RNA: mir-320 microRNA precursor family
Organism: Cebus imitator
RNA sequence: AUAGUUAUAGGCCUUCUCUUCCCAGUUCUUCCCAGAGCCAGGAAAAGCUGGGUUGAGAAGGUGAAAAAACAAAAAA
Numbered sequence: 001a002u003a004g005u006u007a008u009a010g011g012c013c014u015u016c017u018c019u020u021c022c023c024a025g026u027u028c029u030u031c032c033c034a035g036a037g038c039c040a041g042g043a044a045a046a047g048c049u050g051g052g053u054u055g056a057g058a059a060g061g062u063g064a065a066a067a068a069a070c071a072a073a074a075a076a
Stems, first nucleotide, its partner, number of pairs: 014059005021052005029044004